[Rfam]
RNA sequence: GGAGAACACUCUGGAAAAUUCUUAAAUGAAUGCCGAAGGUGCAAGGCUGCAUCCGCAGCUGAAUCUCUCAGGCAAACCGACGGAGACACAUUU
Numbered sequence: 001g002g003a004g005a006a007c008a009c010u011c012u013g014g015a016a017a018a019u020u021c022u023u024a025a026a027u028g029a030a031u032g033c034c035g036a037a038g039g040u041g042c043a044a045g046g047c048u049g050c051a052u053c054c055g056c057a058g059c060u061g062a063a064u065c066u067c068u069c070a071g072g073c074a075a076a077c078c079g080a081c082g083g084a085g086a087c088a089c090a091u092u093u
Stems, first nucleotide, its partner, number of pairs: 009085005019030003032073003035069002039067001041065001045060006